[Rfam]
RNA sequence: GUACGUCUUCAGGGCGGGGCGAAACUCCCCACCGGCGGUAGGCCGCGCAAUGCGGCGAGCCCGCGAGCGCCCGGCACGAUCCUCACGGAUCGCGCCGGGGUCAGCAGAUCUGGUCAGAUGCCAGAGCCGACGGUCACAGUCCGGAUGAGAGAAGAUGUGC
Numbered sequence: 001g002u003a004c005g006u007c008u009u010c011a012g013g014g015c016g017g018g019g020c021g022a023a024a025c026u027c028c029c030c031a032c033c034g035g036c037g038g039u040a041g042g043c044c045g046c047g048c049a050a051u052g053c054g055g056c057g058a059g060c061c062c063g064c065g066a067g068c069g070c071c072c073g074g075c076a077c078g079a080u081c082c083u084c085a086c087g088g089a090u091c092g093c094g095c096c097g098g099g100g101u102c103a104g105c106a107g108a109u110c111u112g113g114u115c116a117g118a119u120g121c122c123a124g125a126g127c128c129g130a131c132g133g134u135c136a137c138a139g140u141c142c143g144g145a146u147g148a149g150a151g152a153a154g155a156u157g158u159g160c
Stems, first nucleotide, its partner, number of pairs: 003158008017029003031140002033129002035064004059127002067105002109125005131143003

A member of the RNA family "FMN riboswitch aptamer (RFN element)" from Bordetella genomosp. 5, 160 nucleotides long. The source organism's lineage runs through Bacteria, Pseudomonadati, Pseudomonadota, Burkholderiales and Bordetella. Pairs were carried over by alignment from the consensus structure, which is taken from published work.